[Rfam]
RNA sequence: AUACAUUUUUGUUGUACGUCGCUCUGGAUAAGAGCGUCUGCCAAAUGCCUGUAA
Numbered sequence: 001a002u003a004c005a006u007u008u009u010u011g012u013u014g015u016a017c018g019u020c021g022c023u024c025u026g027g028a029u030a031a032g033a034g035c036g037u038c039u040g041c042c043a044a045a046u047g048c049c050u051g052u053a054a
Stems, first nucleotide, its partner, number of pairs: 010043001011041001015040002020036006
Dot-bracket structure: .........((...((...((((((.....))))))..))).)...........
The family of this 54-nucleotide sequence from Anguilla anguilla is "UnaL2 LINE 3' element". The base pairs follow the family's consensus structure, which is taken from published work. Lineage of the source: Eukaryota > Eumetazoa > Bilateria > Gnathostomata > Anguilla. From the family's description: The eel long interspersed element (LINE) UnaL2 and its partner short interspersed element (SINE) share a conserved 3' tail containing a stem-loop that is critical for their retrotransposition. Presumably, the first step of retrotransposition is the recognition of their 3' tails by UnaL2-encoded reverse transcriptase.